Annotation:
Shown here is a 65-nucleotide sequence from Otus sunia, a member of the family "MAT2A 3'UTR stem loop A". The match comes from Rfam's covariance-model search (56 bits). The family has 20 seed sequences and 595 matches in Rfam 15.1. The family's consensus secondary structure is taken from published work. Taxonomically the source falls in Otus (Eukaryota, Gnathostomata, Coelurosauria, Strigiformes). A reference for the family is Parker et al. (2011), "New families of human regulatory RNA structures identified by comparative analysis of vertebrate genomes", Genome Res.
[Rfam]
RNA sequence: GCUUUUUCCCCCCACUCCUGCGGGCGUAGGCUACAGAGAAGCUCGCGGGCUCUGGGGGAAAGAGC
Numbered sequence: 001g002c003u004u005u006u007u008c009c010c011c012c013c014a015c016u017c018c019u020g021c022g023g024g025c026g027u028a029g030g031c032u033a034c035a036g037a038g039a040a041g042c043u044c045g046c047g048g049g050c051u052c053u054g055g056g057g058g059a060a061a062g063a064g065c
Stems, first nucleotide, its partner, number of pairs: 001065004009058003013054002019047002023043003026034002
Dot-bracket structure: ((((....(((.((....((..(((((.....))......)))..)).....)).)))...))))